[Rfam]
RNA: U7 small nuclear RNA
Organism: Pongo abelii
RNA sequence: UAGUGUUACAGCUCUUUUAGAAUUUGUCUAGCAGGUUUUCUGAUUUUUAUCCAGAACCCCU
Numbered sequence: 001u002a003g004u005g006u007u008a009c010a011g012c013u014c015u016u017u018u019a020g021a022a023u024u025u026g027u028c029u030a031g032c033a034g035g036u037u038u039u040c041u042g043a044u045u046u047u048u049a050u051c052c053a054g055a056a057c058c059c060c061u
Stems, first nucleotide, its partner, number of pairs: 034058002038056004042051003